The family of this 72-nucleotide sequence is "SAH (S-adenosyl-L-homocysteine) riboswitch aptamer". The base pairs follow the family's consensus structure, which is taken from published work. Rfam 15.1 lists 1,354 matches to the family in 1,132 species.
[Rfam]
RNA sequence: AAUCCGAGGGGCGCUGCAGGGCUGUCGUUCGACAGUUUCAGGCUCGGAUUUCUCAAACGGCGCUCAUCCAAC
Numbered sequence: 001a002a003u004c005c006g007a008g009g010g011g012c013g014c015u016g017c018a019g020g021g022c023u024g025u026c027g028u029u030c031g032a033c034a035g036u037u038u039c040a041g042g043c044u045c046g047g048a049u050u051u052c053u054c055a056a057a058c059g060g061c062g063c064u065c066a067u068c069c070a071a072c
Stems, first nucleotide, its partner, number of pairs: 001050007020037006
The sequence is in the family's curated seed alignment.